[Rfam]
RNA sequence: AUCUCUAGCGAUGUUCACCUUGAAACUUUCGUUCUCCUGAGCUAAUUGUAUGAUGUUGAAAAUUGUGGAGACCUGACCUGAAGAGCU
Numbered sequence: 001a002u003c004u005c006u007a008g009c010g011a012u013g014u015u016c017a018c019c020u021u022g023a024a025a026c027u028u029u030c031g032u033u034c035u036c037c038u039g040a041g042c043u044a045a046u047u048g049u050a051u052g053a054u055g056u057u058g059a060a061a062a063u064u065g066u067g068g069a070g071a072c073c074u075g076a077c078c079u080g081a082a083g084a085g086c087u
Stems, first nucleotide, its partner, number of pairs: 003085004